[Rfam]
RNA: MAT2A 3'UTR stem loop E
Organism: Castor canadensis
RNA sequence: UCAGCAUUCCCAGGCAGGCCAAGGUGUCCUACAGAAAAACCUAGGUUAGACCUACAGGGGCCUAG
Numbered sequence: 001u002c003a004g005c006a007u008u009c010c011c012a013g014g015c016a017g018g019c020c021a022a023g024g025u026g027u028c029c030u031a032c033a034g035a036a037a038a039a040c041c042u043a044g045g046u047u048a049g050a051c052c053u054a055c056a057g058g059g060g061c062c063u064a065g
Stems, first nucleotide, its partner, number of pairs: 001065001003063002008060004014055001016053003019045002022042004026032002